[Rfam]
RNA sequence: UUUUUGCUGUGAUGACAUACAAGGACGGUACCUGAGCGAGUCUUGUAUGCUCGCAUGAUUAUACCUGAUCUGAGACAAAUUGUCUGAGCAAAUU
Numbered sequence: 001u002u003u004u005u006g007c008u009g010u011g012a013u014g015a016c017a018u019a020c021a022a023g024g025a026c027g028g029u030a031c032c033u034g035a036g037c038g039a040g041u042c043u044u045g046u047a048u049g050c051u052c053g054c055a056u057g058a059u060u061a062u063a064c065c066u067g068a069u070c071u072g073a074g075a076c077a078a079a080u081u082g083u084c085u086g087a088g089c090a091a092a093u094u
Base pairs, nucleotide, nucleotide: 003092004091005090006089007088036054037053038052039051040050041049

Small nucleolar RNA Z118/Z121/Z120: a 94-nucleotide RNA from Paspalum vaginatum. The family's consensus secondary structure was predicted with PFOLD. Taxonomically the source falls in Paspalum (Eukaryota, Spermatophyta, Panicoideae, Andropogonodae). For this family Rfam cites "The high diversity of snoRNAs in plants: identification and comparative study of 120 snoRNA genes from Oryza sativa" (Chen et al., Nucleic Acids Res, 2003).